RNA sequence: GAUUUAUAAAGAAGAGGUGAGAGAACAGGCUCGAAGACCCUCUGGCAACCACCCCGACACAUCGGGAAAGGUGCCAAAACCUGCCCGAAUAAGCGGGGACUAUAAAUU
Numbered sequence: 001g002a003u004u005u006a007u008a009a010a011g012a013a014g015a016g017g018u019g020a021g022a023g024a025a026c027a028g029g030c031u032c033g034a035a036g037a038c039c040c041u042c043u044g045g046c047a048a049c050c051a052c053c054c055c056g057a058c059a060c061a062u063c064g065g066g067a068a069a070g071g072u073g074c075c076a077a078a079a080c081c082u083g084c085c086c087g088a089a090u091a092a093g094c095g096g097g098g099a100c101u102a103u104a105a106a107u108u
Stems, first nucleotide, its partner, number of pairs: 001108008013043005021032003026083004044075004049071002052066003084097004
Rfam assigns this 108-nucleotide RNA from Aquiflexum balticum to the family "SAM riboswitch aptamer (S box leader)". On this family, see Grundy and Henkin, Mol Microbiol 1998: "The S box regulon: a new global transcription termination control system for methionine and cysteine biosynthesis genes in gram-positive bacteria". The family's consensus secondary structure is taken from published work. The match comes from Rfam's covariance-model search (75 bits). Lineage of the source: Bacteria > Bacteroidota > Cytophagales > Cyclobacteriaceae > Aquiflexum balticum. From the family's description: The SAM riboswitch is found upstream of a number of genes which code for proteins involved in methionine or cysteine biosynthesis in Gram-positive bacteria.